[Rfam]
RNA: Small nucleolar RNA SNORA61
RNA sequence: AUCCUCCAGUUCCAUUUCCCAUUGGAUCUGAACCUGGUCUUGGUGGUCAUAAAAGGAGGGAAAGGAAUACUGAAGCUGGCCUCUGGUGUAGGGUAGCCUGGCUGCACCCUGGGGCUGGUUUUAGACACCC
Number, nucleotide and partner (000 for none) at each position: 001a000002u000003c059004c058005u057006c056007c055008a000009g000010u000011u000012c000013c000014a000015u000016u000017u000018c000019c046020c045021a044022u043023u042024g000025g039026a038027u037028c036029u000030g000031a000032a000033c000034c000035u000036g028037g027038u026039c025040u000041u000042g023043g022044u021045g020046g019047u000048c000049a000050u000051a000052a000053a000054a000055g007056g006057a005058g004059g003060g000061a000062a000063a000064g000065g000066a000067a000068u000069a000070c000071u000072g000073a000074a000075g000076c118077u117078g116079g115080c114081c113082u112083c000084u000085g000086g000087u000088g000089u000090a000091g000092g108093g107094u106095a000096g000097c000098c000099u000100g000101g000102c000103u000104g000105c000106a094107c093108c092109c000110u000111g000112g082113g081114g080115c079116u078117g077118g076119u000120u000121u000122u000123a000124g000125a000126c000127a000128c000129c000130c000